[Rfam]
RNA sequence: UUCAGGAUGUACACCCUGGUUGAUGUAGUUCAGACAUCCUCAUCACCGGGUGCACAUUCGGUCA
Numbered sequence: 001u002u003c004a005g006g007a008u009g010u011a012c013a014c015c016c017u018g019g020u021u022g023a024u025g026u027a028g029u030u031c032a033g034a035c036a037u038c039c040u041c042a043u044c045a046c047c048g049g050g051u052g053c054a055c056a057u058u059c060g061g062u063c064a
Base pairs, nucleotide, nucleotide: 003061005059006058007057008056009055010054012052013051014050015049017048018047019046021045022044024042025041027040028039
The record is a 64-nucleotide RNA from Setaria digitata, which matches "mir-36_2 microRNA precursor family" in Rfam. The family's consensus secondary structure was predicted with RNAalifold. The family has 2 seed sequences and 30 matches in Rfam 15.1. Clan: mir-36 clan. Rfam links the family to the GO terms RISC complex and miRNA-mediated post-transcriptional gene silencing.